RNA sequence: GCCUCCGUGAGUCCGGCUGGUGCCGGGACUGGACUUCAGUUCCAGGGACUUGGGGACAAGAAGGAGCUCGAUUCUCCCUCGGAGGC
Numbered sequence: 001g002c003c004u005c006c007g008u009g010a011g012u013c014c015g016g017c018u019g020g021u022g023c024c025g026g027g028a029c030u031g032g033a034c035u036u037c038a039g040u041u042c043c044a045g046g047g048a049c050u051u052g053g054g055g056a057c058a059a060g061a062a063g064g065a066g067c068u069c070g071a072u073u074c075u076c077c078c079u080c081g082g083a084g085g086c
Base pairs, nucleotide, nucleotide: 001086002085003084004083005082006081007080009078012027013026014025015024016023017022029045030044031043032042033041049060050059051058052057063077064076065075066074

A member of the RNA family "Selenocysteine transfer RNA" from Cladocopium goreaui, 86 nucleotides long. The match comes from Rfam's covariance-model search (58 bits). Lineage of the source: Eukaryota > Sar > Dinophyceae > Symbiodiniaceae > Cladocopium.